[Rfam]
RNA: DUF805b RNA
Organism: Chitinophaga silvatica
RNA sequence: ACUGGGAAUGCCGAAAACCAGGUAAUAGAGUAGGCA
Numbered sequence: 001a002c003u004g005g006g007a008a009u010g011c012c013g014a015a016a017a018c019c020a021g022g023u024a025a026u027a028g029a030g031u032a033g034g035c036a
Stems, first nucleotide, its partner, number of pairs: 002021004010035003